[Rfam]
RNA: Nitrogen stress-induced RNA 1
RNA sequence: UAAUAGAUGCACCCUGAUUCCUAUCUCGCCCCCAGUUCUUAACAGCUGGGGGUUUUUUAU
Numbered sequence: 001u002a003a004u005a006g007a008u009g010c011a012c013c014c015u016g017a018u019u020c021c022u023a024u025c026u027c028g029c030c031c032c033c034a035g036u037u038c039u040u041a042a043c044a045g046c047u048g049g050g051g052g053u054u055u056u057u058u059a060u
Stems, first nucleotide, its partner, number of pairs: 004011001029052009